[Rfam]
RNA sequence: AAUAGGAGAAUGACAAAUCAUAUUUUUUUCCUCUUGAUUUUUAGCAUUUUUAGUUGAAUUUAAUUUUUUUUAAGAGAAAAAGGUUGAAAAUCAGGAGAAAAAAUCCGAUUUGUCAUUCUCCUAUU
Numbered sequence: 001a002a003u004a005g006g007a008g009a010a011u012g013a014c015a016a017a018u019c020a021u022a023u024u025u026u027u028u029u030c031c032u033c034u035u036g037a038u039u040u041u042u043a044g045c046a047u048u049u050u051u052a053g054u055u056g057a058a059u060u061u062a063a064u065u066u067u068u069u070u071u072a073a074g075a076g077a078a079a080a081a082g083g084u085u086g087a088a089a090a091u092c093a094g095g096a097g098a099a100a101a102a103a104u105c106c107g108a109u110u111u112g113u114c115a116u117u118c119u120c121c122u123a124u125u
Stems, first nucleotide, its partner, number of pairs: 001125019022104006031097011043085002047081004
Shown here is a 125-nucleotide sequence from Gossypium mustelinum, a member of the family "MIR7504 microRNA precursor family".